[Rfam]
RNA sequence: AUGAGGGUACAGGGAGAGAUCGACGCACUCCGUCGCGCUAGGCGCGGGCGGGCGGAGACGCCGAAGGAGUAACCCCGGAUCCGGGGGAAUCUCUCAGGCAAAAGGACCUGUGCCGGACG
Numbered sequence: 001a002u003g004a005g006g007g008u009a010c011a012g013g014g015a016g017a018g019a020u021c022g023a024c025g026c027a028c029u030c031c032g033u034c035g036c037g038c039u040a041g042g043c044g045c046g047g048g049c050g051g052g053c054g055g056a057g058a059c060g061c062c063g064a065a066g067g068a069g070u071a072a073c074c075c076c077g078g079a080u081c082c083g084g085g086g087g088a089a090u091c092u093c094u095c096a097g098g099c100a101a102a103a104g105g106a107c108c109u110g111u112g113c114c115g116g117a118c119g
Stems, first nucleotide, its partner, number of pairs: 006114008020058002060099003063095002067093003073086004
Record summary:
The record is a 119-nucleotide RNA sequence from Paenibacillus antri, which matches "Glycine riboswitch aptamer" in Rfam. The source organism's lineage runs through Bacteria, Bacillati, Bacillota, Bacilli and Paenibacillus.